Shown here is an 85-nucleotide sequence from Erinaceus europaeus, a member of the family "Small nucleolar RNA SNORD86". Rfam 15.1 lists 274 matches to the family in 139 species. A reference for the family is Filippini et al. (2001), "U86, a novel snoRNA with an unprecedented gene organization in yeast", Biochem Biophys Res Commun. About the family: U86 belongs to the C/D family of snoRNAs. It is the human orthologue of Xenopus laevis U86 and has no identified RNA target. Rfam links the family to the GO terms nucleolus and RNA processing.
[Rfam]
RNA sequence: AUUCACUGAUGGUUGUUGACCAGGGUUCCCUGUACUAUACAGACCUCUGCUAUUGGAGUACUGACCAACCCUGUUGUCAGUGAUU
Numbered sequence: 001a002u003u004c005a006c007u008g009a010u011g012g013u014u015g016u017u018g019a020c021c022a023g024g025g026u027u028c029c030c031u032g033u034a035c036u037a038u039a040c041a042g043a044c045c046u047c048u049g050c051u052a053u054u055g056g057a058g059u060a061c062u063g064a065c066c067a068a069c070c071c072u073g074u075u076g077u078c079a080g081u082g083a084u085u
Base pairs, nucleotide, nucleotide: 001085003083004082005081006080011078012077013076019075021073022072023071024070025069026068027067029063033060034059035058036057040055041054042051044049